sroC RNA: a 158-nucleotide sequence from Sodalis glossinidius. A reference for the family is Vogel et al. (2003), "RNomics in Escherichia coli detects new sRNA species and indicates parallel transcriptional output in bacteria", Nucleic Acids Res. The base pairs follow the family's consensus structure, which was predicted with PFOLD. From the family's description: This family consists of a number of bacterial sroC RNA genes of around 160 bases in length. sroC is found in several Enterobacterial species. The family's RNA type in Rfam is small RNA. Lineage of the source: Bacteria > Enterobacterales > Bruguierivoracaceae > Sodalis > Sodalis glossinidius.
RNA sequence: ACUAAUAACGAUAAUAAGGGCGGGAUUGCCCGCCCUCUUGAUUGCUGACCAAAGGCCCGGACAGACAGACGCGCCAAGGCCGUUCCCCGAAGCGCGGGAAUACGGGGCCAUUCAUCAAUCUUCAGGGUAGCGUUUGCUACCCUUUUUUACCGGAUUUU
Numbered sequence: 001a002c003u004a005a006u007a008a009c010g011a012u013a014a015u016a017a018g019g020g021c022g023g024g025a026u027u028g029c030c031c032g033c034c035c036u037c038u039u040g041a042u043u044g045c046u047g048a049c050c051a052a053a054g055g056c057c058c059g060g061a062c063a064g065a066c067a068g069a070c071g072c073g074c075c076a077a078g079g080c081c082g083u084u085c086c087c088c089g090a091a092g093c094g095c096g097g098g099a100a101u102a103c104g105g106g107g108c109c110a111u112u113c114a115u116c117a118a119u120c121u122u123c124a125g126g127g128u129a130g131c132g133u134u135u136g137c138u139a140c141c142c143u144u145u146u147u148u149a150c151c152g153g154a155u156u157u158u
Base pairs, nucleotide, nucleotide: 013156014155018035019034020033021032022030023029036126037125039124040123041119042118043117044116047113048112058105060103062098071095072094073093074092078088079087